[Rfam]
RNA sequence: GUGCUCGAGGGAUAAACUGGUCCCUCAUAUCUAACGUCCAUCUGAUCACUUUGUCAGUUGCCUUUCCCAGUGGCAUGCUGAUCAUUAUAAGAUGG
Numbered sequence: 001g002u003g004c005u006c007g008a009g010g011g012a013u014a015a016a017c018u019g020g021u022c023c024c025u026c027a028u029a030u031c032u033a034a035c036g037u038c039c040a041u042c043u044g045a046u047c048a049c050u051u052u053g054u055c056a057g058u059u060g061c062c063u064u065u066c067c068c069a070g071u072g073g074c075a076u077g078c079u080g081a082u083c084a085u086u087a088u089a090a091g092a093u094g095g
Base pairs, nucleotide, nucleotide: 038095039094040093041092042091053082054081055080056079057078058077
Small nucleolar RNA snoR99: a 95-nucleotide RNA from Gossypium aridum. The base pairs follow the family's consensus structure, which was predicted with WAR. The family's RNA type in Rfam is H/ACA-box small nucleolar RNA. The family has 9 seed sequences and 733 matches in Rfam 15.1.